c-di-AMP riboswitch aptamer (ydaO/yuaA leader): a 153-nucleotide sequence from Actinomadura sp. BRA 177.
About the family: This family represents a conserved RNA structure found upstream of the ydaO and yuaA genes in Bacillus subtilis and related genes in other bacteria. The ydaO/yuaA element is thought to act as a genetic 'off' switch for the ydaO and yuaA genes in its native state. It is believed that the element may be triggered during osmotic shock leading to activation of ydaO, a predicted amino acid transporter gene, and members of the yuaA-yubG operon which code for KtrA and KtrB K+ transporters.
A search with the family's covariance model found it, with a score of 74 bits.
The organism belongs to Actinomadura, within Bacteria.

[Rfam]
RNA sequence: GCGACCGGAACGCCGAAUCUCCCGCCCGCCGGGAGAACCGGGGACCCACACACUCGGGGUGAAUCGACGCGCCGCCGCCACGGCGGCGCGGCGUAGGGCGACUCCUGGCCCGAACCCGUCAGCUAACCCGGUAGGCGCACGAGGAGAGGAGAA
Numbered sequence: 001g002c003g004a005c006c007g008g009a010a011c012g013c014c015g016a017a018u019c020u021c022c023c024g025c026c027c028g029c030c031g032g033g034a035g036a037a038c039c040g041g042g043g044a045c046c047c048a049c050a051c052a053c054u055c056g057g058g059g060u061g062a063a064u065c066g067a068c069g070c071g072c073c074g075c076c077g078c079c080a081c082g083g084c085g086g087c088g089c090g091g092c093g094u095a096g097g098g099c100g101a102c103u104c105c106u107g108g109c110c111c112g113a114a115c116c117c118g119u120c121a122g123c124u125a126a127c128c129c130g131g132u133a134g135g136c137g138c139a140c141g142a143g144g145a146g147a148g149g150a151g152a153a
Base pairs, nucleotide, nucleotide: 011137012136013135014134018036019035020034021033022032023031024030037132038131039130040129041128042127047056057117058116059115065093066092068090069089070088071087072086073085074084075083076082077081096111097110098109099108